[Rfam]
RNA sequence: CAUAGGAGGAUGACAAAUCAAAUUUUUCCUCCUGAUUUUUAGCAUUUUCAGUUGGAUUUAAAUUUUUGAUCAGGAGGAAAAAUUUGAAAAUUAAGAGGAAAAUUCUGAUUUGUCAUUCUCCUAUU
Numbered sequence: 001c002a003u004a005g006g007a008g009g010a011u012g013a014c015a016a017a018u019c020a021a022a023u024u025u026u027u028c029c030u031c032c033u034g035a036u037u038u039u040u041a042g043c044a045u046u047u048u049c050a051g052u053u054g055g056a057u058u059u060a061a062a063u064u065u066u067u068g069a070u071c072a073g074g075a076g077g078a079a080a081a082a083u084u085u086g087a088a089a090a091u092u093a094a095g096a097g098g099a100a101a102a103u104u105c106u107g108a109u110u111u112g113u114c115a116u117u118c119u120c121c122u123a124u125u
Stems, first nucleotide, its partner, number of pairs: 002124019022104001024102004029097003033093007041085002045081004

Rfam assigns this 125-nucleotide RNA sequence from Gossypium lobatum to the family "MIR7504 microRNA precursor family". Pairs were carried over by alignment from the consensus structure, which was predicted with RNAalifold. It scores 91 bits against the family's covariance model. The family has 8 seed sequences and 7,343 matches in Rfam 15.1. Rfam links the family to the GO terms miRNA-mediated post-transcriptional gene silencing and RISC complex.